A member of the RNA family "tRNA" from Coptis chinensis, 72 nucleotides long.
The family's RNA type in Rfam is transfer RNA.
Taxonomically the source falls in Coptis (Eukaryota, Spermatophyta, Magnoliopsida, Ranunculales).
RNA sequence: GGAUCCAUAAGCUCAAAAGGGCAAGAGCGCUCGUUAUUUGAGAGGUUGAUGGUUCGAAUCCAUCUGGAUCCA
Numbered sequence: 001g002g003a004u005c006c007a008u009a010a011g012c013u014c015a016a017a018a019g020g021g022c023a024a025g026a027g028c029g030c031u032c033g034u035u036a037u038u039u040g041a042g043a044g045g046u047u048g049a050u051g052g053u054u055c056g057a058a059u060c061c062a063u064c065u066g067g068a069u070c071c072a
Base pairs, nucleotide, nucleotide: 001071002070003069004068005067006066007065011028012027013026014025030042031041032040033039048064049063050062051061052060